RNA sequence: GUACUCUCUCCGUAAACUAAUAUAAGAGCGUUUAGAUCACUAUUUUAAUGAUCUAAACACUCUUAUAUUAGUUUACAGAGGGAGUAU
Numbered sequence: 001g002u003a004c005u006c007u008c009u010c011c012g013u014a015a016a017c018u019a020a021u022a023u024a025a026g027a028g029c030g031u032u033u034a035g036a037u038c039a040c041u042a043u044u045u046u047a048a049u050g051a052u053c054u055a056a057a058c059a060c061u062c063u064u065a066u067a068u069u070a071g072u073u074u075a076c077a078g079a080g081g082g083a084g085u086a087u
Stems, first nucleotide, its partner, number of pairs: 003085003007081004013075005019069010030058010041047001

Notes: Rfam assigns this 87-nucleotide sequence from Triticum aestivum to the family "MIR1120/MIR1122 microRNA precursor family". The match comes from Rfam's covariance-model search (86 bits). The literature on the family includes a 2007 paper in Genome Biol by Yao et al., "Cloning and characterization of microRNAs from wheat (Triticum aestivum L.)". Its family is annotated with RISC complex and miRNA-mediated post-transcriptional gene silencing in the Gene Ontology.